[Rfam]
RNA sequence: UCCGCGUACUUACCUACUAUAUGGUAGCUGACAUACAUGUAUUUCGCCUACUAUAUAGCAGGUAAAUACACGGUUU
Numbered sequence: 001u002c003c004g005c006g007u008a009c010u011u012a013c014c015u016a017c018u019a020u021a022u023g024g025u026a027g028c029u030g031a032c033a034u035a036c037a038u039g040u041a042u043u044u045c046g047c048c049u050a051c052u053a054u055a056u057a058g059c060a061g062g063u064a065a066a067u068a069c070a071c072g073g074u075u076u
Stems, first nucleotide, its partner, number of pairs: 002073003006069003010065006017058011029046003033042003
mir-7563 microRNA precursor family: a 76-nucleotide RNA from Ameiurus melas. Rfam links the family to the GO terms RISC complex and miRNA-mediated post-transcriptional gene silencing. It scores 86 bits against the family's covariance model.